Shown here is a 62-nucleotide RNA sequence from Clostridium pasteurianum, a member of the family "RAGATH-18 RNA". Pairs were carried over by alignment from the consensus structure, which is taken from published work. From the family's description: Actinobacteria, Firmicutes, Fusobacteria, Thermotogae (1 example).
RNA sequence: CCCUUGGAGUGCUUAUACAAACCAAAGUAGCUUCGGCAAAAUGGAGUACGUUGAACAGGGAA
Numbered sequence: 001c002c003c004u005u006g007g008a009g010u011g012c013u014u015a016u017a018c019a020a021a022c023c024a025a026a027g028u029a030g031c032u033u034c035g036g037c038a039a040a041a042u043g044g045a046g047u048a049c050g051u052u053g054a055a056c057a058g059g060g061a062a
Stems, first nucleotide, its partner, number of pairs: 001060004009049005022044003030037002